[Rfam]
RNA sequence: UGGCGAGGUUUUCCUCGGCAGUUAACUGCAGCCGGUUUUACUAAACUUCGGCAGUUAACUGCCGAGGGACAU
Numbered sequence: 001u002g003g004c005g006a007g008g009u010u011u012u013c014c015u016c017g018g019c020a021g022u023u024a025a026c027u028g029c030a031g032c033c034g035g036u037u038u039u040a041c042u043a044a045a046c047u048u049c050g051g052c053a054g055u056u057a058a059c060u061g062c063c064g065a066g067g068g069a070c071a072u
Stems, first nucleotide, its partner, number of pairs: 012068002015065015